Source information:
The record is a 140-nucleotide RNA from Chanos chanos, which matches "Small nucleolar RNA SNORD10" in Rfam. Pairs were carried over by alignment from the consensus structure, which was predicted with WAR. For this family Rfam cites "RNomics: an experimental approach that identifies 201 candidates for novel, small, non-messenger RNAs in mouse" (Huttenhofer et al., EMBO J, 2001). Rfam 15.1 lists 433 matches to the family in 306 species. Taxonomically the source falls in Chanos (Eukaryota, Opisthokonta, Gnathostomata, Anotophysi).
RNA sequence: GUAUAAUGAUGAUAUCCAUGCGUGUCAACUGACCCCGGUGCCCCCUGCGGCUGACAGCUGUUAACCAGCGUUCUGCUGGCUGAUGUGUCUGGGGCCGCAGGACUCUGGGGACGUGAUCAGAUCUUUACGCGGCUGAAUAC
Number, nucleotide and partner (000 for none) at each position: 001g140002u139003a138004u137005a000006a000007u000008g000009a000010u000011g000012a000013u000014a000015u000016c000017c000018a000019u000020g000021c000022g000023u000024g000025u000026c000027a000028a000029c000030u000031g000032a000033c000034c000035c000036c000037g000038g000039u000040g000041c000042c000043c000044c101045c100046u099047g098048c097049g096050g095051c094052u000053g000054a000055c000056a000057g000058c000059u000060g000061u000062u000063a000064a000065c000066c000067a000068g000069c000070g000071u000072u000073c000074u000075g000076c000077u000078g000079g000080c000081u000082g000083a000084u000085g000086u000087g000088u000089c000090u000091g000092g000093g000094g051095c050096c049097g048098c047099a046100g045101g044102a000103c000104u000105c000106u000107g000108g000109g000110g000111a000112c000113g000114u000115g000116a000117u000118c000119a000120g000121a000122u000123c000124u000125u000126u000127a000128c000129g000130c000131g000132g000133c000134u000135g000136a000137a004138u003139a002140c001